RNA sequence: GUCGGGUGCUGUGCGCGCGCCUGUAAUCUUGCUGCUGGGAGGCUGAAGCUGCCGGAUUAUUUGAGGUUGGGAGUUCUGGGCUGUUGCGGUCUGUGCCGAUCGGGUGUCCACACUAAGAUCAGUGUCCACAUGGUGCUCCUCAGGGAGCCUGGGUGCACCAGGUGUGCUGCAGAGGGAUGAACCGGCCCAGGUCAGAAACGGAGCAGAUCAAAGCCCCCGCACUGCUCAGUAGUGGGAUGGCACCUGUGAAUAGAUGCAGCAGUGCAGCCUGACCAAUACAGUGGGACGCAGCCUUUA
Number, nucleotide and partner (000 for none) at each position: 001g043002u042003c041004g022005g021006g020007u019008g018009c017010u000011g000012u000013g000014c000015g000016c000017g009018c008019g007020c006021c005022u004023g000024u000025a000026a000027u040028c039029u038030u000031g000032c000033u000034g000035c000036u000037g000038g029039g028040a027041g003042g002043c001044u000045g295046a294047a000048g292049c291050u290051g289052c288053c000054g000055g000056a000057u284058u283059a282060u281061u280062u000063g000064a000065g274066g273067u272068u271069g270070g269071g268072a000073g000074u000075u000076c267077u266078g265079g000080g263081c262082u261083g260084u259085u258086g257087c256088g255089g000090u254091c253092u252093g251094u250095g000096c248097c000098g000099a000100u000101c246102g245103g244104g243105u242106g241107u240108c236109c235110a000111c234112a233113c232114u231115a230116a000117g227118a226119u000120c224121a223122g222123u221124g220125u219126c000127c164128a163129c162130a000131u160132g159133g158134u157135g156136c155137u000138c153139c152140u151141c000142a000143g148144g000145g000146a000147g000148c143149c000150u000151g140152g139153g138154u000155g136156c135157a134158c133159c132160a131161g000162g129163u128164g127165u000166g000167c000168u000169g000170c000171a000172g000173a000174g217175g216176g215177a000178u213179g000180a000181a000182c000183c000184g209185g208186c000187c206188c000189a000190g000191g000192u201193c200194a000195g000196a000197a000198a000199c000200g193201g192202a000203g000204c000205a000206g187207a000208u185209c184210a000211a000212a000213g178214c000215c176216c175217c174218c000219g125220c124221a123222c122223u121224g120225c000226u118227c117228a000229g000230u115231a114232g113233u112234g111235g109236g108237a000238u000239g000240g107241c106242a105243c104244c103245u102246g101247u000248g096249a000250a094251u093252a092253g091254a090255u088256g087257c086258a085259g084260c083261a082262g081263u080264g000265c078266a077267g076268c071269c070270u069271g068272a067273c066274c065275a000276a000277u000278a000279c000280a061281g060282u059283g058284g057285g000286a000287c000288g052289c051290a050291g049292c048293c000294u046295u045296u000297a000
The family of this 297-nucleotide RNA from Chiloscyllium punctatum is "Metazoan signal recognition particle RNA". Lineage of the source: Eukaryota > Metazoa > Deuterostomia > Hemiscylliidae > Chiloscyllium. Rfam classes the family as a non-coding RNA gene. Clan: SRP clan. The base pairs follow the family's consensus structure, which is taken from published work. About the family: The signal recognition particle (SRP) is a universally conserved ribonucleoprotein. It is involved in the co-translational targeting of proteins to membranes.